[Rfam]
RNA sequence: UAACUAAACGGGAGAAGUUGUAGCGCUCUAUGUUUUUGUAAUUUCAUAAGCGUAUAGCUUUUCCCCUUGGUUA
Numbered sequence: 001u002a003a004c005u006a007a008a009c010g011g012g013a014g015a016a017g018u019u020g021u022a023g024c025g026c027u028c029u030a031u032g033u034u035u036u037u038g039u040a041a042u043u044u045c046a047u048a049a050g051c052g053u054a055u056a057g058c059u060u061u062u063c064c065c066c067u068u069g070g071u072u073a
Stems, first nucleotide, its partner, number of pairs: 003071005010065003014061002018057005026050002029048004

Shown here is a 73-nucleotide RNA sequence from Arctia plantaginis, a member of the family "mir-965 microRNA precursor family".
The organism belongs to Arctia, within Eukaryota.
Rfam 15.1 lists 224 matches to the family in 178 species.
The match comes from Rfam's covariance-model search (75 bits).
Rfam links the family to the GO terms RISC complex and miRNA-mediated post-transcriptional gene silencing.